Shown here is a 106-nucleotide RNA, a member of the family "skipping-rope RNA".
[Rfam]
RNA sequence: GCUGCUUGAAGUAGCGAAUCUGCCGUCUACACGCUGGUCGGGCGCAAGACCAAGUGUGCUCAACCGGCUAAAAGAGAUGCGGGACUUGGCAGACCCGCCGUGUGGC
Numbered sequence: 001g002c003u004g005c006u007u008g009a010a011g012u013a014g015c016g017a018a019u020c021u022g023c024c025g026u027c028u029a030c031a032c033g034c035u036g037g038u039c040g041g042g043c044g045c046a047a048g049a050c051c052a053a054g055u056g057u058g059c060u061c062a063a064c065c066g067g068c069u070a071a072a073a074g075a076g077a078u079g080c081g082g083g084a085c086u087u088g089g090c091a092g093a094c095c096c097g098c099c100g101u102g103u104g105g106c
Stems, first nucleotide, its partner, number of pairs: 001106005007100002011030004020092005032074001033068006079098005
Dot-bracket structure: (((((.((..((((.....[[[[[..)))).(((((((........................)))))).....)....(((((....]]]]].))))))).)))))